[Rfam]
c-di-AMP riboswitch aptamer (ydaO/yuaA leader): a 145-nucleotide RNA sequence. Pairs were carried over by alignment from the consensus structure.
RNA sequence: CACGACGGGUCGCCGGUACGGCCGUCUCCGGGAGGAGGACGCCGCGCCGAGCAGCCCUUGGGGUGAAGCCGCACCCGUGCGGCCGGGCAACUUCGCCAGCCCGAAUCCGACAGGUCAUCCUUCACAGGCGGCUGACGAAGGGUUG
Numbered sequence: 001c002a003c004g005a006c007g008g009g010u011c012g013c014c015g016g017u018a019c020g021g022c023c024g025u026c027u028c029c030g031g032g033a034g035g036a037g038g039a040c041g042c043c044g045c046g047c048c049g050a051g052c053a054g055c056c057c058u059u060g061g062g063g064u065g066a067a068g069c070c071g072c073a074c075c076c077g078u079g080c081g082g083c084c085g086g087g088c089a090a091c092u093u094c095g096c097c098a099g100c101c102c103g104a105a106u107c108c109g110a111c112a113g114g115u116c117a118u119c120c121u122u123c124a125c126a127g128g129c130g131g132c133u134g135a136c137g138a139a140g141g142g143u144u145g
Stems, first nucleotide, its partner, number of pairs: 011130004019030002032125001034123004042060001061108003069082004085102004
Dot-bracket structure: ..........((((....((........)).(.((((....(.................)(((.....((((......))))..((((..........))))...)))...........)))).).))))...............